[Rfam]
RNA sequence: GUUGAAGUUCCAUCUACAAAUGGAUAAGAUUUCCGUCUUAAUGUAUUAAGAAUAAGAAUCGUUGAGGGAGCUAUACCCAAUAUCUUCCAAAAUAAAAAUAUUGGGUAUAGCUCCCUU
Numbered sequence: 001g002u003u004g005a006a007g008u009u010c011c012a013u014c015u016a017c018a019a020a021u022g023g024a025u026a027a028g029a030u031u032u033c034c035g036u037c038u039u040a041a042u043g044u045a046u047u048a049a050g051a052a053u054a055a056g057a058a059u060c061g062u063u064g065a066g067g068g069a070g071c072u073a074u075a076c077c078c079a080a081u082a083u084c085u086u087c088c089a090a091a092a093u094a095a096a097a098a099u100a101u102u103g104g105g106u107a108u109a110g111c112u113c114c115c116u117u
Base pairs, nucleotide, nucleotide: 009024010023011022012021013020066115067114068113069112070111071110072109073108074107075106076105078103079102080101082099083098085096086095

Rfam assigns this 117-nucleotide RNA sequence to the family "Plastid-psbA-1 3UTR RNA". Rfam classes the family as a cis-regulatory element. The family's consensus secondary structure was predicted with LocARNA. Rfam's curators put it in the seed alignment.